[Rfam]
RNA: Small nucleolar RNA snoR138
Organism: Papaver somniferum
RNA sequence: AUAGCCUUCGAAUAACCAGAUGUGGAAAUUUGAGACCGCAUUUGGUUCAGACAAGAGCAUAUAAUAAAUAUGUGAGGGGAAUUGUGUAGGAAUUCAUUUCUUCACCUUUCCAUUUCCUCAUGAAUCU
Numbered sequence: 001a002u003a004g005c006c007u008u009c010g011a012a013u014a015a016c017c018a019g020a021u022g023u024g025g026a027a028a029u030u031u032g033a034g035a036c037c038g039c040a041u042u043u044g045g046u047u048c049a050g051a052c053a054a055g056a057g058c059a060u061a062u063a064a065u066a067a068a069u070a071u072g073u074g075a076g077g078g079g080a081a082u083u084g085u086g087u088a089g090g091a092a093u094u095c096a097u098u099u100c101u102u103c104a105c106c107u108u109u110c111c112a113u114u115u116c117c118u119c120a121u122g123a124a125u126c127u
Stems, first nucleotide, its partner, number of pairs: 004058002007055002014047008023038003075127003079110003084105003088102001091099002111122003